[Rfam]
RNA sequence: GCUCACGGUCAGUUUUGCAGGUUUGCAUCCCAGCUUGCUCCGACCGCUGUGCAAAUCCAUGCAAAACUGACCGUGGUG
Numbered sequence: 001g002c003u004c005a006c007g008g009u010c011a012g013u014u015u016u017g018c019a020g021g022u023u024u025g026c027a028u029c030c031c032a033g034c035u036u037g038c039u040c041c042g043a044c045c046g047c048u049g050u051g052c053a054a055a056u057c058c059a060u061g062c063a064a065a066a067c068u069g070a071c072c073g074u075g076g077u078g
Stems, first nucleotide, its partner, number of pairs: 003076017020058002022055007032048003